[Rfam]
Nucleotides: 126
Base pairs, nucleotide, nucleotide: 001014002013003012004011005010015051016050017049018048021032022031023030033045034044035043036042058075062071063070064069076083077082086122087121088120089119090118091117092116093115094114095113096112097111098110100107
Number, partner (000 for none) and nucleotide at each position: 001014g002013a003012u004011a005010g006000g007000u008000c009000g010005c011004u012003g013002u014001c015051g016050c017049u018048a019000g020000c021032g022031u023030g024000a025000u026000u027000g028000g029000a030023c031022a032021c033045u034044g035043a036042c037000a038000g039000a040000g041000a042036g043035u044034c045033a046000a047000u048018u049017a050016g051015c052000c053000u054000u055000g056000g057000u058075c059000a060000c061000a062071c063070g064069g065000u066000u067000c068000u069064u070063c071062g072000c073000u074000c075058g076083c077082g078000g079000a080000a081000c082077c083076g084000c085000c086122g087121a088120c089119g090118g091117u092116c093115c094114g095113a096112g097111u098110c099000a100107c101000g102000a103000g104000g105000g106000g107100g108000g109000a110098g111097g112096c113095u114094c115093g116092g117091a118090c119089c120088g121087u122086c123000g124000u125000c126000c

This 126-nucleotide RNA sequence from Streptomyces lucensis belongs to the Rfam family "Streptomyces RNA 3920".
Identified by deep sequencing of transcriptome at the end of exponential growth phase. Sequencing size consistent with northern blot size. Streptomyces specific.
On this family, see Vockenhuber et al., RNA Biol 2011: "Deep sequencing-based identification of small non-coding RNAs in Streptomyces coelicolor".
By type it is a small RNA.
NCBI's taxonomy places the organism under Bacteria, Actinomycetes, Streptomycetaceae, Streptomyces, Streptomyces lucensis.